[Rfam]
RNA sequence: GAAUAUUUUCCAUUCACAACGGAUCGUCGGGCACGUACCUGCCCGUGAAAAGGAUAAGAA
Number, nucleotide and partner (000 for none) at each position: 001g000002a000003a000004u000005a000006u000007u000008u000009u000010c052011c000012a000013u049014u048015c047016a046017c000018a000019a000020c000021g000022g000023a000024u000025c000026g000027u000028c045029g044030g043031g042032c041033a040034c000035g000036u000037a000038c000039c000040u033041g032042c031043c030044c029045g028046u016047g015048a014049a013050a000051a000052g010053g000054a000055u000056a000057a000058g000059a000060a000
RNA: msiK RNA
Organism: Arthrobacter subterraneus